[Rfam]
RNA sequence: UCACCGGGCCGUGACUGGCGCUGAGGUGGAGCACCACCGGGAAGCGGUUCCGCGACUCCGUACGUGCCGCGCGCCUGGGCCGAUCCG
Numbered sequence: 001u002c003a004c005c006g007g008g009c010c011g012u013g014a015c016u017g018g019c020g021c022u023g024a025g026g027u028g029g030a031g032c033a034c035c036a037c038c039g040g041g042a043a044g045c046g047g048u049u050c051c052g053c054g055a056c057u058c059c060g061u062a063c064g065u066g067c068c069g070c071g072c073g074c075c076u077g078g079g080c081c082g083a084u085c086c087g
Base pairs, nucleotide, nucleotide: 004052006050007049008048009047010046011045012044015041016040017075018074019073020072021071026037027036028035029034066080067079068078
RNA: ZMP/ZTP riboswitch aptamer (pfl RNA motif)